[Rfam]
RNA sequence: UAACCCAAGGAGCGUUGCAGCGAAGCAUUGAUUCGUCAGGCUUGGGUCACCGGCGUGUUCCCCGAAGCGCCUGCAGCAACGACGCUCACCUUGA
Numbered sequence: 001u002a003a004c005c006c007a008a009g010g011a012g013c014g015u016u017g018c019a020g021c022g023a024a025g026c027a028u029u030g031a032u033u034c035g036u037c038a039g040g041c042u043u044g045g046g047u048c049a050c051c052g053g054c055g056u057g058u059u060c061c062c063c064g065a066a067g068c069g070c071c072u073g074c075a076g077c078a079a080c081g082a083c084g085c086u087c088a089c090c091u092u093g094a
Stems, first nucleotide, its partner, number of pairs: 003047006021035004026030001
Rfam assigns this 94-nucleotide RNA from Polaromonas sp. JS666 to the family "SAH (S-adenosyl-L-homocysteine) riboswitch aptamer". A reference for the family is Wang et al. (2008), "Riboswitches that sense S-adenosylhomocysteine and activate genes involved in coenzyme recycling", Mol Cell. Pairs were carried over by alignment from the consensus structure, which is taken from published work. The family has 52 seed sequences and 1,354 matches in Rfam 15.1. The match comes from Rfam's covariance-model search (51 bits).